[Rfam]
RNA: malK-II RNA
RNA sequence: AUUCCUACUGUUAUUGCCUAUAACAUAAUUCAUAUACUGCUAGGCAGUAA
Numbered sequence: 001a002u003u004c005c006u007a008c009u010g011u012u013a014u015u016g017c018c019u020a021u022a023a024c025a026u027a028a029u030u031c032a033u034a035u036a037c038u039g040c041u042a043g044g045c046a047g048u049a050a
Stems, first nucleotide, its partner, number of pairs: 011050008